[Rfam]
RNA sequence: GGAAGCGCUUAGGCUCCGGUGGUCCUCCCGGUCUUCAAAACCGGUGGUCGUUCUUAACGGGCGACGGUGUGUUCGACUCACACGCGCUUCC
Dot-bracket structure: ((((((((..(((.((....)).))).(((((.......)))))..(((((.........)))))..((((.......)))).))))))))
RNA: Selenocysteine transfer RNA
Organism: Acidisarcina polymorpha